[Rfam]
RNA sequence: GGCGUAUUAUUCGAUGACUGAGCCGGACCGCUGGUCGACGUGAUGAUGGAUUUCAUUGAAUCGCAUCGUAAUACGCACGGGGUCGAGCCGAUUCUGCGCGGUGCUGCCGAUCGCCCCU
Number, nucleotide and partner (000 for none) at each position: 001g000002g000003c000004g000005u000006a000007u000008u000009a000010u000011u000012c000013g000014a000015u000016g032017a000018c030019u000020g028021a000022g000023c000024c000025g000026g000027a000028c020029c000030g018031c000032u016033g000034g000035u000036c000037g000038a000039c000040g000041u000042g000043a000044u000045g000046a000047u000048g000049g000050a000051u000052u000053u000054c000055a000056u000057u000058g000059a000060a000061u000062c000063g000064c000065a000066u000067c000068g000069u000070a000071a000072u000073a000074c000075g000076c000077a000078c000079g117080g116081g115082g114083u000084c000085g000086a000087g000088c000089c113090g112091a000092u000093u110094c109095u000096g107097c106098g105099c000100g000101g000102u000103g000104c000105u098106g097107c096108c000109g094110a093111u000112c090113g089114c082115c081116c080117c079118u000
ALIL pseudoknot: a 118-nucleotide sequence from Limimaricola hongkongensis. Rfam classes the family as a cis-regulatory element.